A member of the RNA family "c-di-GMP-I riboswitch aptamer" from Tenuibacillus multivorans, 83 nucleotides long.

RNA sequence: UUGAAGAAAAGGCAAACCUCUUGAAAAAGGGGGACGCAAAGCCGGUGGUCUAAGGGGUUUCCUAUGAUAGCACAGCUACCUCA
Numbered sequence: 001u002u003g004a005a006g007a008a009a010a011g012g013c014a015a016a017c018c019u020c021u022u023g024a025a026a027a028a029g030g031g032g033g034a035c036g037c038a039a040a041g042c043c044g045g046u047g048g049u050c051u052a053a054g055g056g057g058u059u060u061c062c063u064a065u066g067a068u069a070g071c072a073c074a075g076c077u078a079c080c081u082c083a
Base pairs, nucleotide, nucleotide: 012037013036017032018031019030020029021028022027040077041076042075045073046072047071048068049067050066055062056061
Pairs were carried over by alignment from the consensus structure, which is taken from published work.